[Rfam]
Description: A member of the RNA family "Glycine riboswitch aptamer" from Microbacterium sediminis, 87 nucleotides long. NCBI's taxonomy places the organism under Bacteria, Actinomycetota, Actinomycetes, Micrococcales, Microbacterium. This family represents the bacterial glycine riboswitch.

RNA sequence: AUGAGUGGCAGGGGAGAGUCUCGCUCCGGCGAGCGCCGAAGGGGCAAGCACCCGCAAUCUCUCAGGCACAAGGACUCUGCCGCUCGG
Numbered sequence: 001a002u003g004a005g006u007g008g009c010a011g012g013g014g015a016g017a018g019u020c021u022c023g024c025u026c027c028g029g030c031g032a033g034c035g036c037c038g039a040a041g042g043g044g045c046a047a048g049c050a051c052c053c054g055c056a057a058u059c060u061c062u063c064a065g066g067c068a069c070a071a072g073g074a075c076u077c078u079g080c081c082g083c084u085c086g087g
Stems, first nucleotide, its partner, number of pairs: 006082008020033004035067003038063002042061003048055002